[Rfam]
The family of this 72-nucleotide RNA from Manduca sexta is "mir-34 microRNA precursor family".
A reference for the family is Lim et al. (2003), "Vertebrate microRNA genes", Science.
Rfam 15.1 lists 2,256 matches to the family in 820 species.
Lineage of the source: Eukaryota > Metazoa > Eumetabola > Aparaglossata > Manduca.
Human mir-34a was discovered computationally and later experimentally verified. The mature sequence is excised from the 5' arm of the hairpin.
RNA sequence: GCCGCGUUGGCAGUGUGGUUAGCUGGUUGUUUAUGUCAUAACAACAGCCACUAGCGACACUGCCUCUGCGUG
Dot-bracket structure: ..((((..((.(((((.(((((.((((((((...........))))))))))))).))))).))..))))..